[Rfam]
RNA sequence: UACAAAAAAGAAUAUUAAACUCAUAUAAGCCCUUAAUAUGGUGGGGCGUAUCUACCUAUAACCAAAAAUUAUAGUCUAUGGGUUAGGAUUGACAUUUU
Numbered sequence: 001u002a003c004a005a006a007a008a009a010g011a012a013u014a015u016u017a018a019a020c021u022c023a024u025a026u027a028a029g030c031c032c033u034u035a036a037u038a039u040g041g042u043g044g045g046g047c048g049u050a051u052c053u054a055c056c057u058a059u060a061a062c063c064a065a066a067a068a069u070u071a072u073a074g075u076c077u078a079u080g081g082g083u084u085a086g087g088a089u090u091g092a093c094a095u096u097u098u
Base pairs, nucleotide, nucleotide: 018084019083020082021081022080023079024078025077029047030046031045032044033043056074057073058072059071060070061069

Source information:
Shown here is a 98-nucleotide sequence from Helcococcus ovis, a member of the family "Purine riboswitch aptamer". The literature on the family includes a 2003 paper in Cell by Mandal et al., "Riboswitches Control Fundamental Biochemical Pathways in Bacillus subtilis and Other Bacteria". Riboswitches are metabolite binding domains within certain messenger RNAs that serve as precision sensors for their corresponding targets. The match comes from Rfam's covariance-model search (65 bits). The organism belongs to Helcococcus, within Bacteria.